MIR168 microRNA precursor family: a 126-nucleotide sequence.
[Rfam]
RNA sequence: UUACCGGCGGUCUCGGAUUCGCUUGGUGCAGGUCGGGAACUGAUUGGCUGACACCGACACGUGUCUUGUCAUGGUUGGUUUGUGAGCUCCCGUCUUGUAUCAACUGAAUCGGAGUCCGAGGUGAAA
Numbered sequence: 001u002u003a004c005c006g007g008c009g010g011u012c013u014c015g016g017a018u019u020c021g022c023u024u025g026g027u028g029c030a031g032g033u034c035g036g037g038a039a040c041u042g043a044u045u046g047g048c049u050g051a052c053a054c055c056g057a058c059a060c061g062u063g064u065c066u067u068g069u070c071a072u073g074g075u076u077g078g079u080u081u082g083u084g085a086g087c088u089c090c091c092g093u094c095u096u097g098u099a100u101c102a103a104c105u106g107a108a109u110c111g112g113a114g115u116c117c118g119a120g121g122u123g124a125a126a
Stems, first nucleotide, its partner, number of pairs: 013113002017109004023103010034092005040086002
A reference for the family is Reinhart et al. (2002), "MicroRNAs in plants", Genes Dev. Gene Ontology terms of the family: RISC complex and miRNA-mediated post-transcriptional gene silencing. Rfam's curators put it in the seed alignment.